[Rfam]
Source information: A member of the RNA family "Small nucleolar RNA SNORA31" from Menidia menidia, 137 nucleotides long. The family's consensus secondary structure was predicted with RNAalifold. Rfam's curators write: ACA31 (SNORA31) belongs to the H/ACA class of snoRNAs which are thought to guide the sites of modification of uridines to pseudouridines. ACA31 is predicted to guide the pseudouridylation of U3713 in 28S rRNA and U218 in 18S rRNA. This family includes the mouse homologue snoMBI-161. Taxonomically the source falls in Menidia (Eukaryota, Actinopterygii, Euteleosteomorpha, Percomorphaceae). It scores 45 bits against the family's covariance model. The literature on the family includes a 2001 paper in EMBO J by Huttenhofer et al., "RNomics: an experimental approach that identifies 201 candidates for novel, small, non-messenger RNAs in mouse". Rfam links the family to the GO terms nucleolus and RNA processing.
RNA sequence: CUGCAUCUUUGACAGCCCGGGUUCUCUGUUGUGAGAUAUCCCGGGUUUUGAUUUUGCAGAUGCAAUAUGAAAAGUCCCUGCGCUUUCUGCCCGCCUAUUUUCCCAUGGCGUCUCGGAUUGAAUAGGGGAGGACAAUU
Number, nucleotide and partner (000 for none) at each position: 001c000002u064003g063004c062005a061006u060007c059008u058009u000010u000011g057012a000013c056014a055015g046016c045017c044018c043019g042020g041021g040022u000023u000024c000025u000026c000027u000028g000029u000030u000031g000032u000033g000034a000035g000036a000037u000038a000039u000040c021041c020042c019043g018044g017045g016046u015047u000048u000049u000050g000051a000052u000053u000054u000055u014056g013057c011058a008059g007060a006061u005062g004063c003064a002065a000066u000067a000068u000069g000070a000071a000072a000073a000074g000075u129076c128077c127078c126079u125080g000081c000082g000083c120084u000085u000086u117087c116088u115089g114090c000091c000092c110093g109094c108095c107096u000097a000098u000099u000100u000101u000102c000103c000104c000105a000106u000107g095108g094109c093110g092111u000112c000113u000114c089115g088116g087117a086118u000119u000120g083121a000122a000123u000124a000125g079126g078127g077128g076129a075130g000131g000132a000133c000134a000135a000136u000137u000